[Rfam]
RNA sequence: CUUCAACGAGCCCAGCCACAGCGGCUGUUCGGCGGGUCGGUCCUUUCCGUAGGUGGCGAGGAGGGCCUGGGCCUC
Numbered sequence: 001c002u003u004c005a006a007c008g009a010g011c012c013c014a015g016c017c018a019c020a021g022c023g024g025c026u027g028u029u030c031g032g033c034g035g036g037u038c039g040g041u042c043c044u045u046u047c048c049g050u051a052g053g054u055g056g057c058g059a060g061g062a063g064g065g066c067c068u069g070g071g072c073c074u075c
Stems, first nucleotide, its partner, number of pairs: 014026004033069001038065001043060003047056003
RNA: ASpks TB sRNA
Organism: Streptomyces sp. RP5T